[Rfam]
The family of this 125-nucleotide sequence from Tetracentron sinense is "Small nucleolar RNA SNORD14". The family has 18 seed sequences and 4,559 matches in Rfam 15.1. The family's RNA type in Rfam is C/D-box small nucleolar RNA. NCBI's taxonomy places the organism under Eukaryota, Tracheophyta, Mesangiospermae, Trochodendraceae, Tetracentron. The base pairs follow the family's consensus structure, which was predicted with PFOLD. For this family Rfam cites "An essential domain in Saccharomyces cerevisiae U14 snoRNA is absent in vertebrates, but conserved in other yeasts" (Samarsky et al., Nucleic Acids Res, 1996). From the family's description: U14 small nucleolar RNA (U14 snoRNA) is required for early cleavages of eukaryotic precursor rRNAs. In yeasts, this molecule possess a stem-loop region (known as the Y-domain) which is essential for function. A similar structure, but with a different consensus sequence, is found in plants, but is absent in vertebrates.
RNA sequence: UGUCUAUGAUGACAAUCACAAGGCUUGUUUCUCAAGAACAUUCACAGUUGCUGCCUGAGAGCUUUCGCCUUCGCCGGGCUUGAGAGCUUAUGCUGCUCUUAUUCCUUCCUUGGAUGUCUGAGACU
Dot-bracket structure: .(((........................................................((((((...............))))))..................................))).